This 128-nucleotide sequence from Pontibacillus chungwhensis belongs to the Rfam family "ylbH leader". Lineage of the source: Bacteria > Bacilli > Bacillaceae > Pontibacillus > Pontibacillus chungwhensis. The match comes from Rfam's covariance-model search (92 bits). Pairs were carried over by alignment from the consensus structure. By type it is a cis-regulatory leader. Rfam links the family to the GO term regulation of gene expression. This family is a putative regulatory RNA structure that is found upstream of the ylbH gene in B. subtilis and related low GC Gram-positive bacteria. For this family Rfam cites "New RNA motifs suggest an expanded scope for riboswitches in bacterial genetic control" (Barrick et al., Proc Natl Acad Sci U S A, 2004).

RNA sequence: AAUAAAAAAAGCCUGCAGACAUUUGUCUGCAGGCACCUUUUUUGAUUUAAUUCUCAUCAAAUCAAAAAGGCAAAGGGAGAGGAGAAACCGGAGGAAGAACUUAUGGGGAACGUAAGUCUUCUCCGUCU
Numbered sequence: 001a002a003u004a005a006a007a008a009a010a011g012c013c014u015g016c017a018g019a020c021a022u023u024u025g026u027c028u029g030c031a032g033g034c035a036c037c038u039u040u041u042u043u044g045a046u047u048u049a050a051u052u053c054u055c056a057u058c059a060a061a062u063c064a065a066a067a068a069g070g071c072a073a074a075g076g077g078a079g080a081g082g083a084g085a086a087a088c089c090g091g092a093g094g095a096a097g098a099a100c101u102u103a104u105g106g107g108g109a110a111c112g113u114a115a116g117u118c119u120u121c122u123c124c125g126u127c128u
Stems, first nucleotide, its partner, number of pairs: 011034009036076004044063005089125004094121004099117005